RNA sequence: GUGCACGUAACUUUCUCGCAUUGAGUUGCAAGGGGGAGGGGAAUGGGUCCCCUCCGGUUGCGUGAUACGGAAGG
Numbered sequence: 001g002u003g004c005a006c007g008u009a010a011c012u013u014u015c016u017c018g019c020a021u022u023g024a025g026u027u028g029c030a031a032g033g034g035g036g037a038g039g040g041g042a043a044u045g046g047g048u049c050c051c052c053u054c055c056g057g058u059u060g061c062g063u064g065a066u067a068c069g070g071a072a073g074g
Stems, first nucleotide, its partner, number of pairs: 001068003006062002009059004014033002018029003035055008
RNA: Corio-PBP RNA